[Rfam]
The record is a 105-nucleotide sequence from Papio sp. Africa-2004, which matches "Mitochondrial DNA control region secondary structure A" in Rfam. Rfam 15.1 lists 795 matches to the family in 62 species.
RNA sequence: GUAUUUUAUGUUGUACAAGCCCCACAGUACAACCUUAGCACUAGCUAACUUUUAAUGCCACUAUGUAAUUCGUGCAUUACUGCUAGCCAACAUGAAUAAUAUAUA
Numbered sequence: 001g002u003a004u005u006u007u008a009u010g011u012u013g014u015a016c017a018a019g020c021c022c023c024a025c026a027g028u029a030c031a032a033c034c035u036u037a038g039c040a041c042u043a044g045c046u047a048a049c050u051u052u053u054a055a056u057g058c059c060a061c062u063a064u065g066u067a068a069u070u071c072g073u074g075c076a077u078u079a080c081u082g083c084u085a086g087c088c089a090a091c092a093u094g095a096a097u098a099a100u101a102u103a104u105a
Base pairs, nucleotide, nucleotide: 005096006095007094008093009092010091011090013087018081019080024036027033028032038058039057042054043053044052063077064076065075066074067073